[Rfam]
RNA: Mammalian CPEB3 ribozyme
RNA sequence: AUUGCAAGUUUAAGGCCGUAGCAGAAUUGUUCAUGGUAUGGUCCUGUCAGAUCCUAACAAAUCUGCACAUUCUGCU
Numbered sequence: 001a002u003u004g005c006a007a008g009u010u011u012a013a014g015g016c017c018g019u020a021g022c023a024g025a026a027u028u029g030u031u032c033a034u035g036g037u038a039u040g041g042u043c044c045u046g047u048c049a050g051a052u053c054c055u056a057a058c059a060a061a062u063c064u065g066c067a068c069a070u071u072c073u074g075c076u
Stems, first nucleotide, its partner, number of pairs: 014043004020076007028038002048065005